c-di-GMP-I riboswitch aptamer: an 86-nucleotide RNA sequence from Methylocaldum marinum. Rfam links the family to the GO term cyclic-di-GMP binding. NCBI's taxonomy places the organism under Bacteria, Pseudomonadota, Gammaproteobacteria, Methylococcaceae, Methylocaldum. The base pairs follow the family's consensus structure, which is taken from published work.
RNA sequence: UUUCGCAUCUGCCACUCCCGCCGCGAGGCGGGUUCGGAAAGCCACGGGUCUCGCGACCGAAGUCGCAAGACGGCCGGGCCGCCUCC
Numbered sequence: 001u002u003u004c005g006c007a008u009c010u011g012c013c014a015c016u017c018c019c020g021c022c023g024c025g026a027g028g029c030g031g032g033u034u035c036g037g038a039a040a041g042c043c044a045c046g047g048g049u050c051u052c053g054c055g056a057c058c059g060a061a062g063u064c065g066c067a068a069g070a071c072g073g074c075c076g077g078g079c080c081g082c083c084u085c086c
Stems, first nucleotide, its partner, number of pairs: 012037002017032006041079003045076003048071003054065004